[Rfam]
RNA: Gammaproteobacterial sRNA STnc400
Organism: Acerihabitans arboris
RNA sequence: UAGGGUUGCGCUAGAUACGAAUCUACCGAUCCUAGAUUGCUGCGCAUCAAGGAUCGGUAGAUUCGUAUCUAGCGCCUCCUUUAGUAAAGAGUGUAAAGACGGGCUUAGGCUCGUCUUUGUUUAUCUGAG
Numbered sequence: 001u002a003g004g005g006u007u008g009c010g011c012u013a014g015a016u017a018c019g020a021a022u023c024u025a026c027c028g029a030u031c032c033u034a035g036a037u038u039g040c041u042g043c044g045c046a047u048c049a050a051g052g053a054u055c056g057g058u059a060g061a062u063u064c065g066u067a068u069c070u071a072g073c074g075c076c077u078c079c080u081u082u083a084g085u086a087a088a089g090a091g092u093g094u095a096a097a098g099a100c101g102g103g104c105u106u107a108g109g110c111u112c113g114u115c116u117u118u119g120u121u122u123a124u125c126u127g128a129g
Base pairs, nucleotide, nucleotide: 003080004079005078008075009074010073011072012071013070014069015068016067017066018065019064020063021062022061023060024059025058026057027056028055029054030053031052032051033050035048036047094119095118096117098115099114100113101112102111103110104109